[Rfam]
A member of the RNA family "UnaL2 LINE 3' element" from Megalops atlanticus, 54 nucleotides long.
The source organism's lineage runs through Eukaryota, Eumetazoa, Neopterygii, Elopocephala and Megalops.
The family's consensus secondary structure is taken from published work.
It is annotated as a cis-regulatory element.
RNA sequence: CUGUUCCUCGCUUGUAAGUCGCUUUGGAUAAAAGCAUCUGCCAAAUGACCUAAA
Numbered sequence: 001c002u003g004u005u006c007c008u009c010g011c012u013u014g015u016a017a018g019u020c021g022c023u024u025u026g027g028a029u030a031a032a033a034g035c036a037u038c039u040g041c042c043a044a045a046u047g048a049c050c051u052a053a054a
Stems, first nucleotide, its partner, number of pairs: 013043001014041003021035005

About this RNA
Rfam describes the family as follows. The eel long interspersed element (LINE) UnaL2 and its partner short interspersed element (SINE) share a conserved 3' tail containing a stem-loop that is critical for their retrotransposition.